mir-92 microRNA precursor family: a 79-nucleotide RNA sequence from Oryzias javanicus. From the family's description: This family represents the microRNA precursor mir-92. Human miR-92 has two predicted hairpin precursor sequences: mir-92-1 on chromosome 13 and mir-92-2 on chromosome X. miR-92 has also been cloned from mouse embryonic stem cells. The mature sequence is excised from the 3' arm of the hairpin. A search with the family's covariance model found it, with a score of 61 bits. The family's consensus secondary structure was predicted with PFOLD. Rfam links the family to the GO terms miRNA-mediated post-transcriptional gene silencing and RISC complex.
RNA sequence: CUUUCUGUGCAGGUUGGGAGAGGUGGCAAUGCUCUGUGCUCUGGCUGGUAUUGCACUUGUCCCGGCCUGUUGCGGACAU
Numbered sequence: 001c002u003u004u005c006u007g008u009g010c011a012g013g014u015u016g017g018g019a020g021a022g023g024u025g026g027c028a029a030u031g032c033u034c035u036g037u038g039c040u041c042u043g044g045c046u047g048g049u050a051u052u053g054c055a056c057u058u059g060u061c062c063c064g065g066c067c068u069g070u071u072g073c074g075g076a077c078a079u
Stems, first nucleotide, its partner, number of pairs: 004075002009070006016063004022057003026054008